[Rfam]
Nucleotides: 045
Stems, first nucleotide, its partner, number of pairs: 001019007032044005
Number, partner (000 for none) and nucleotide at each position: 001019c002018c003017c004016g005015g006014g007013g008000c009000u010000a011000c012000a013007c014006c015005c016004c017003g018002g019001g020000c021000u022000a023000u024000u025000a026000u027000a028000u029000u030000u031000c032044g033043g034042u035041c036040u037000u038000u039000c040036a041035g042034a043033c044032c045000u